[Rfam]
RNA: Small Cajal body specific RNA 11
Organism: Myotis brandtii
RNA sequence: UUGUCCUGGCCUAUGCUCUCUCUCUGCUCCCCUCUGCUCAGCUGUAACAGGGAAGUCUGGCAGGACACACAGCAACCUCCCUCUCAGUUUAGGAGGGCUUUCCUGAGUAUAGGCUGGAUCUUAAAGGCACGAGGACAAU
Numbered sequence: 001u002u003g004u005c006c007u008g009g010c011c012u013a014u015g016c017u018c019u020c021u022c023u024c025u026g027c028u029c030c031c032c033u034c035u036g037c038u039c040a041g042c043u044g045u046a047a048c049a050g051g052g053a054a055g056u057c058u059g060g061c062a063g064g065a066c067a068c069a070c071a072g073c074a075a076c077c078u079c080c081c082u083c084u085c086a087g088u089u090u091a092g093g094a095g096g097g098c099u100u101u102c103c104u105g106a107g108u109a110u111a112g113g114c115u116g117g118a119u120c121u122u123a124a125a126g127g128c129a130c131g132a133g134g135a136c137a138a139u
Stems, first nucleotide, its partner, number of pairs: 002067007010060002026056003030052004035047001080134003085131001087128004093122004098117002102113004